Source information: The family of this 60-nucleotide RNA from Hephaestia caeni is "Fluoride riboswitch aptamer (crcB RNA motif)". The match comes from Rfam's covariance-model search (49 bits).
RNA sequence: ACGUACUAGGGGGAUGGAGCUCCCCAAAACCGCCUUCCGGCUAAUGGCUCCUGCCGCGCU
Numbered sequence: 001a002c003g004u005a006c007u008a009g010g011g012g013g014a015u016g017g018a019g020c021u022c023c024c025c026a027a028a029a030c031c032g033c034c035u036u037c038c039g040g041c042u043a044a045u046g047g048c049u050c051c052u053g054c055c056g057c058g059c060u
Stems, first nucleotide, its partner, number of pairs: 010025004016051006032041003